Shown here is a 52-nucleotide RNA from Methylobacterium sp. Leaf93, a member of the family "serC leader". Rfam describes the family as follows. This family is a putative regulatory RNA structure that is found upstream of the serC-serA operon in some alpha-proteobacteria. Pairs were carried over by alignment from the consensus structure. It is annotated as a cis-regulatory leader. Its family is annotated with regulation of gene expression in the Gene Ontology. A search with the family's covariance model found it, with a score of 61 bits.
RNA sequence: CGCCGGGCCACUCCUCCCCAACGAGGAGCAUUCAUCUGUAAGGAUGGACUUU
Numbered sequence: 001c002g003c004c005g006g007g008c009c010a011c012u013c014c015u016c017c018c019c020a021a022c023g024a025g026g027a028g029c030a031u032u033c034a035u036c037u038g039u040a041a042g043g044a045u046g047g048a049c050u051u052u
Stems, first nucleotide, its partner, number of pairs: 011028006032047006
Dot-bracket structure: ..........((((((......))))))...((((((....)))))).....